A member of the RNA family "ALIL pseudoknot" from Rubellimicrobium roseum, 119 nucleotides long. Its family is annotated with positive regulation of translational frameshifting in the Gene Ontology. The organism belongs to Rubellimicrobium, within Bacteria. The family's consensus secondary structure is taken from published work.
Nucleotides: 119
Stems, first nucleotide, its partner, number of pairs: 016034002018030003080119003091114002094111005100105001
Number, partner (000 for none) and nucleotide at each position: 001000c002000g003000c004000g005000u006000a007000u008000u009000u010000u011000g012000c013000g014000a015000u016034g017033g018030c019029g020028g021000a022000g023000c024000u025000c026000g027000a028020c029019c030018g031000c032000g033017c034016c035000g036000g037000u038000c039000g040000a041000a042000g043000u044000g045000a046000u047000g048000g049000u050000g051000u052000c053000g054000u055000u056000c057000a058000u059000u060000g061000a062000c063000g064000a065000u066000c067000a068000u069000c070000g071000a072000g073000g074000a075000a076000a077000g078000c079000a080119u081118g082117g083000a084000g085000u086000c087000g088000a089000g090000c091114c092113g093000a094111u095110c096109u097108g098107c099000c100105g101000u102000c103000u104000u105100c106000u107098g108097c109096g110095g111094a112000u113092c114091g115000a116000c117082c118081c119080g